[Rfam]
RNA sequence: CGACGUUCUCAGGGCGGGGUGAAACUCCCCACCGGCGGUGUCCGAGGCUUCGGCCGAGGGAGCCCGCGAGCGCCUGCUGGCUCAUGCUGGCAGGGUCAGCAGACAUGGAAGGCGAUGCCCGCGCAAAGCCGAAGCCAUGGCCGACGGUCACAGUCCGGAUGAAAGAGACACGCAA
Numbered sequence: 001c002g003a004c005g006u007u008c009u010c011a012g013g014g015c016g017g018g019g020u021g022a023a024a025c026u027c028c029c030c031a032c033c034g035g036c037g038g039u040g041u042c043c044g045a046g047g048c049u050u051c052g053g054c055c056g057a058g059g060g061a062g063c064c065c066g067c068g069a070g071c072g073c074c075u076g077c078u079g080g081c082u083c084a085u086g087c088u089g090g091c092a093g094g095g096u097c098a099g100c101a102g103a104c105a106u107g108g109a110a111g112g113c114g115a116u117g118c119c120c121g122c123g124c125a126a127a128g129c130c131g132a133a134g135c136c137a138u139g140g141c142c143g144a145c146g147g148u149c150a151c152a153g154u155c156c157g158g159a160u161g162a163a164a165g166a167g168a169c170a171c172g173c174a175a
Base pairs, nucleotide, nucleotide: 004172005171006170007168008167009166010165017029018028019027031154032153033143034142035067036066037065038064062141063140070100071099104139105138106137107136108135145157146156147155
Dot-bracket structure: ...(((((((......(((.......))).[[((((((.......................[[))))..((...........................))...(((((..........................)))))]])).(((.....]]))).......)))).)))...
Notes
A member of the RNA family "FMN riboswitch aptamer (RFN element)" from Hydrogenophaga sp. H7, 175 nucleotides long. Lineage of the source: Bacteria > Pseudomonadota > Betaproteobacteria > Burkholderiales > Hydrogenophaga. Rfam describes the family as follows. The RFN element is a highly conserved domain that is found frequently in the 5'-untranslated regions of prokaryotic mRNAs that encode for flavin mononucleotide (FMN) biosynthesis and transport proteins.